[Rfam]
RNA: Mammalian CPEB3 ribozyme
Organism: Alligator mississippiensis
RNA sequence: AGUCAGUUCAAAUGGCCAUAGCAGGAGCAAUCAUAAUGCAGACCCUGUCAGAUGCCAAUGAAUCUGUGAAUUCUGCU
Numbered sequence: 001a002g003u004c005a006g007u008u009c010a011a012a013u014g015g016c017c018a019u020a021g022c023a024g025g026a027g028c029a030a031u032c033a034u035a036a037u038g039c040a041g042a043c044c045c046u047g048u049c050a051g052a053u054g055c056c057a058a059u060g061a062a063u064c065u066g067u068g069a070a071u072u073c074u075g076c077u
Stems, first nucleotide, its partner, number of pairs: 014044002016041001020077007027039003049066005055060001